[Rfam]
RNA sequence: UUUCGCAUUGGGCUUGUUAUCCACAAUGGCAUUGCCAACCGCAUGCAACAGGUGGGUUUUACCUAAACCUGUGCCACCGUA
Numbered sequence: 001u002u003u004c005g006c007a008u009u010g011g012g013c014u015u016g017u018u019a020u021c022c023a024c025a026a027u028g029g030c031a032u033u034g035c036c037a038a039c040c041g042c043a044u045g046c047a048a049c050a051g052g053u054g055g056g057u058u059u060u061a062c063c064u065a066a067a068c069c070u071g072u073g074c075c076a077c078c079g080u081a
Stems, first nucleotide, its partner, number of pairs: 005042002009038001011036003016032002020029002051078004056074002061072002

This 81-nucleotide sequence from Vibrio nigripulchritudo belongs to the Rfam family "antisense RNA of dnaA mRNA". Gene Ontology term of the family: regulation of mRNA stability. Lineage of the source: Bacteria > Pseudomonadati > Gammaproteobacteria > Vibrionales > Vibrio.